[Rfam]
RNA sequence: GCGGAUGUGGUGUAAGGGCAACACCGGAGUAUGCCAAGCUCCAAAUGCGAGUUCAACUCUCGUCGUCCGCU
Numbered sequence: 001g002c003g004g005a006u007g008u009g010g011u012g013u014a015a016g017g018g019c020a021a022c023a024c025c026g027g028a029g030u031a032u033g034c035c036a037a038g039c040u041c042c043a044a045a046u047g048c049g050a051g052u053u054c055a056a057c058u059c060u061c062g063u064c065g066u067c068c069g070c071u
Stems, first nucleotide, its partner, number of pairs: 001070007010024004026042005047063005
The family of this 71-nucleotide sequence from Calothrix sp. PCC 7507 is "tRNA". Transfer RNA (tRNA) molecules are approximately 80 nucleotides in length. It is annotated as a transfer RNA.